[Rfam]
RNA: mir-590 microRNA precursor family
RNA sequence: UUUCAAUCAGAGACUAGCUUAUACAUAAAAUUACAGGUUUACUGGAUUAUACUGUACUUUUAUGAAUAAGCUCGUUUCUGAUUGGC
Dot-bracket structure: ...((((((((.((.(((((((.(((((((.(((((...............))))).))))))).))))))).)).))))))))..